[Rfam]
RNA sequence: UCCUUCUUGCAAAAGCACUCUGCUAAAAUUGCAAGGCCAAAGCCUUUGGCUUGGGUCUUGUGAUAAUGCUAGUAAGAGUACACCCAAGAAGGAGAAUAACUGCACAUCAUCUGGAAUGAGACAGGGAUGGACCUCUUUCUUAAUGUCCAAUGUCCAUUGUCUCAGGAUGCUAUGCAACAGUU
Numbered sequence: 001u002c003c004u005u006c007u008u009g010c011a012a013a014a015g016c017a018c019u020c021u022g023c024u025a026a027a028a029u030u031g032c033a034a035g036g037c038c039a040a041a042g043c044c045u046u047u048g049g050c051u052u053g054g055g056u057c058u059u060g061u062g063a064u065a066a067u068g069c070u071a072g073u074a075a076g077a078g079u080a081c082a083c084c085c086a087a088g089a090a091g092g093a094g095a096a097u098a099a100c101u102g103c104a105c106a107u108c109a110u111c112u113g114g115a116a117u118g119a120g121a122c123a124g125g126g127a128u129g130g131a132c133c134u135c136u137u138u139c140u141u142a143a144u145g146u147c148c149a150a151u152g153u154c155c156a157u158u159g160u161c162u163c164a165g166g167a168u169g170c171u172a173u174g175c176a177a178c179a180g181u182u
Stems, first nucleotide, its partner, number of pairs: 018078002021074005028067004034058002037055002040052005101176004106171001108169002124153001126151001128149004
Dot-bracket structure: .................((.(((((..((((..((.((.(((((...))))).)).)).....))))..)))))..))......................((((.(.((..............(.(.((((..............)))).).)..............)).).))))......